[Rfam]
This 198-nucleotide sequence from Paenibacillus stellifer belongs to the Rfam family "Lysine riboswitch aptamer". The source organism's lineage runs through Bacteria, Bacillati, Bacillota, Caryophanales and Paenibacillus. Its family is annotated with lysine biosynthetic process in the Gene Ontology. Riboswitches are metabolite binding domains within certain messenger RNAs that serve as precision sensors for their corresponding targets.

RNA sequence: AGAUGAGGUAGAGGUCGCGGAUAUGAAGAGUACGCGCGGGGAGACGUCAAAGAGCCGUCCACGAACCGCCGCGGAAAGGCAUAGCCGCCGAAGUCCAUGCCGCCGCUCUUGUCCGGCAUGGACUGGGGCCGUACCCGAAAGGGACGGAACUGUCACGCCUGCGAAGCUUGCUUCGCGGCGUGUUGCGCUAUCUUCACU
Number, nucleotide and partner (000 for none) at each position: 001a000002g000003a000004u000005g000006a193007g192008g191009u190010a189011g188012a000013g000014g000015u000016c000017g088018c087019g086020g085021a000022u083023a082024u081025g080026a000027a000028g000029a000030g000031u000032a000033c073034g072035c071036g070037c068038g067039g066040g000041g000042a000043g000044a000045c000046g000047u000048c000049a000050a000051a000052g000053a000054g000055c000056c000057g000058u000059c000060c000061a000062c000063g000064a000065a000066c039067c038068g037069c000070c036071g035072c034073g033074g000075a000076a000077a000078g000079g000080c025081a024082u023083a022084g000085c020086c019087g018088c017089c000090g000091a000092a124093g123094u122095c121096c120097a119098u118099g117100c116101c115102g114103c000104c000105g000106c000107u000108c000109u000110u000111g000112u000113c000114c102115g101116g100117c099118a098119u097120g096121g095122a094123c093124u092125g151126g150127g000128g000129c147130c146131g145132u144133a000134c142135c141136c000137g000138a000139a000140a000141g135142g134143g000144a132145c131146g130147g129148a000149a000150c126151u125152g000153u000154c182155a181156c180157g179158c178159c177160u000161g000162c000163g000164a000165a000166g000167c000168u000169u000170g000171c000172u000173u000174c000175g000176c000177g159178g158179c157180g156181u155182g154183u000184u000185g000186c000187g000188c011189u010190a009191u008192c007193u006194u000195c000196a000197c000198u000